The family of this 109-nucleotide sequence from Scleropages formosus is "Small nucleolar RNA SNORD67".
It scores 60 bits against the family's covariance model.
snoRNA HBII-166 belongs to the C/D family of snoRNAs.
By type it is a C/D-box small nucleolar RNA.
The source organism's lineage runs through Eukaryota, Craniata, Teleostei, Osteoglossomorpha and Scleropages.

RNA sequence: CUCCAGAGUGAUGAGUUGCACCAGUGGGUGGGGUGGCUCUGCAGUGGCGGAUCUGCUCCACACUGACUCCUGACGAUAAGCAUAAGUGCACAGGGGCCAUCUGACUGGA
Numbered sequence: 001c002u003c004c005a006g007a008g009u010g011a012u013g014a015g016u017u018g019c020a021c022c023a024g025u026g027g028g029u030g031g032g033g034u035g036g037c038u039c040u041g042c043a044g045u046g047g048c049g050g051a052u053c054u055g056c057u058c059c060a061c062a063c064u065g066a067c068u069c070c071u072g073a074c075g076a077u078a079a080g081c082a083u084a085a086g087u088g089c090a091c092a093g094g095g096g097c098c099a100u101c102u103g104a105c106u107g108g109a
Stems, first nucleotide, its partner, number of pairs: 004108001007106002025065003028061004033056003038051005